[Rfam]
RNA sequence: UCCCCACACUCACCCGCAUACGGCAGGAGCGGGGGACCCACAGGUUCCAUGCCUGUUCCGGUCUCCGGAACGGCUAGGGGUAUAGCCGUGCAAUGGCGCGGCUGGGCAUCUCCAGCCCGCACCCGACAGCUCACCUCGCAGGCGACGGAGAGGAAUUCG
Numbered sequence: 001u002c003c004c005c006a007c008a009c010u011c012a013c014c015c016g017c018a019u020a021c022g023g024c025a026g027g028a029g030c031g032g033g034g035g036a037c038c039c040a041c042a043g044g045u046u047c048c049a050u051g052c053c054u055g056u057u058c059c060g061g062u063c064u065c066c067g068g069a070a071c072g073g074c075u076a077g078g079g080g081u082a083u084a085g086c087c088g089u090g091c092a093a094u095g096g097c098g099c100g101g102c103u104g105g106g107c108a109u110c111u112c113c114a115g116c117c118c119g120c121a122c123c124c125g126a127c128a129g130c131u132c133a134c135c136u137c138g139c140a141g142g143c144g145a146c147g148g149a150g151a152g153g154a155a156u157u158c159g
Base pairs, nucleotide, nucleotide: 001028002027003026029139030138031137032136033135034134039077078124079123080122086101087100088099089098104118105117106116107115
The family of this 159-nucleotide sequence from Streptomyces albiflavescens is "c-di-AMP riboswitch aptamer (ydaO/yuaA leader)". NCBI's taxonomy places the organism under Bacteria, Bacillati, Actinomycetota, Kitasatosporales, Streptomyces. This family represents a conserved RNA structure found upstream of the ydaO and yuaA genes in Bacillus subtilis and related genes in other bacteria. A search with the family's covariance model found it, with a score of 57 bits.